This 511-nucleotide RNA from Streptomyces boluensis belongs to the Rfam family "Saccharopolyspora sRNA 350". A search with the family's covariance model found it, with a score of 161 bits.
RNA sequence: AUCGCGGUGUGCUCCCACCGGGCGUCGUCGUCGAGCAGCACGUGCUCCCCGAACCGGUCCCCGUCAGCGAGUACGUCGAGGGCGACCUCGUCACCGUAAUUGCCCUCGGAGGUCUGGCUGACGCGCCCGUGCGCGAUGAGGUGGAGCUGGUCGGCGGGGGUGCCGCGCACCACCAGGGUCUCGCCGCUGCUGAACUCGCGCUGCACGCACCGGUCAGCGAUGGCGGUCAGCACGUCCACGUCGUCGAAGCCGCGCAGCAGGGCCAGUUCACCGAGCUCGCGGGGGAUCACCCGGACCCCGGCGCCGUCCUGGACGAACUCCACCCGGCCGUCUCCGACGGUGUAGCUGAGCCGGCGGUUCACCCGGUAGGCGCCGCCCUUGGUCUCCACCCAGGGGAGCAUCCGCAGCAGCCAACGGGAGGAGAUCUCCUGCAUCUGCGGUGCGGACUUGGUCGUGGUGGCGAGGUUACGGGCGGCCGCCGUACCCAGGCUGGAUUGCCGGGGCACCUCGA
Numbered sequence: 001a002u003c004g005c006g007g008u009g010u011g012c013u014c015c016c017a018c019c020g021g022g023c024g025u026c027g028u029c030g031u032c033g034a035g036c037a038g039c040a041c042g043u044g045c046u047c048c049c050c051g052a053a054c055c056g057g058u059c060c061c062c063g064u065c066a067g068c069g070a071g072u073a074c075g076u077c078g079a080g081g082g083c084g085a086c087c088u089c090g091u092c093a094c095c096g097u098a099a100u101u102g103c104c105c106u107c108g109g110a111g112g113u114c115u116g117g118c119u120g121a122c123g124c125g126c127c128c129g130u131g132c133g134c135g136a137u138g139a140g141g142u143g144g145a146g147c148u149g150g151u152c153g154g155c156g157g158g159g160g161u162g163c164c165g166c167g168c169a170c171c172a173c174c175a176g177g178g179u180c181u182c183g184c185c186g187c188u189g190c191u192g193a194a195c196u197c198g199c200g201c202u203g204c205a206c207g208c209a210c211c212g213g214u215c216a217g218c219g220a221u222g223g224c225g226g227u228c229a230g231c232a233c234g235u236c237c238a239c240g241u242c243g244u245c246g247a248a249g250c251c252g253c254g255c256a257g258c259a260g261g262g263c264c265a266g267u268u269c270a271c272c273g274a275g276c277u278c279g280c281g282g283g284g285g286a287u288c289a290c291c292c293g294g295a296c297c298c299c300g301g302c303g304c305c306g307u308c309c310u311g312g313a314c315g316a317a318c319u320c321c322a323c324c325c326g327g328c329c330g331u332c333u334c335c336g337a338c339g340g341u342g343u344a345g346c347u348g349a350g351c352c353g354g355c356g357g358u359u360c361a362c363c364c365g366g367u368a369g370g371c372g373c374c375g376c377c378c379u380u381g382g383u384c385u386c387c388a389c390c391c392a393g394g395g396g397a398g399c400a401u402c403c404g405c406a407g408c409a410g411c412c413a414a415c416g417g418g419a420g421g422a423g424a425u426c427u428c429c430u431g432c433a434u435c436u437g438c439g440g441u442g443c444g445g446a447c448u449u450g451g452u453c454g455u456g457g458u459g460g461c462g463a464g465g466u467u468a469c470g471g472g473c474g475g476c477c478g479c480c481g482u483a484c485c486c487a488g489g490c491u492g493g494a495u496u497g498c499c500g501g502g503g504c505a506c507c508u509c510g511a
Base pairs, nucleotide, nucleotide: 006390007389008388009387011385014382015381019327021325022324025322027320031316032315036311037310038309040307041306042305047303049301050300051299058229061226062225063224064223065111068108075103077102078101079100082097083096084095119220122217126213127212129210130209131206133204134203135202138199140197143196144195150191154187155186156185157184158182159181160180161175162174165171234296235295236294237293240290241289243287244286245285250282251281252280253279254278256277257276258275260271262269329342330341331340332339353377354376355375356374357373360372362370363369391431392430393429394428395427396426397425399423401421403418405416407415437476438475440473443470444469446467447465448464449463451461452460477510478509481504482503484502485501486500488498
The source organism's lineage runs through Bacteria, Bacillati, Kitasatosporales, Streptomycetaceae and Streptomyces. A reference for the family is Liu et al. (2013), "Prediction and characterization of small non-coding RNAs related to secondary metabolites in Saccharopolyspora erythraea", PLoS One.